RNA sequence: AAAAGGAGCAAUACCUAAUCUCUUGAUAGAACAAGAGAUUAGGUAUUGCUCCUUUUU
Numbered sequence: 001a002a003a004a005g006g007a008g009c010a011a012u013a014c015c016u017a018a019u020c021u022c023u024u025g026a027u028a029g030a031a032c033a034a035g036a037g038a039u040u041a042g043g044u045a046u047u048g049c050u051c052c053u054u055u056u057u
Base pairs, nucleotide, nucleotide: 002055003054004053005052006051007050008049009048010047011046012045013044014043015042020037021036022035023034024033025032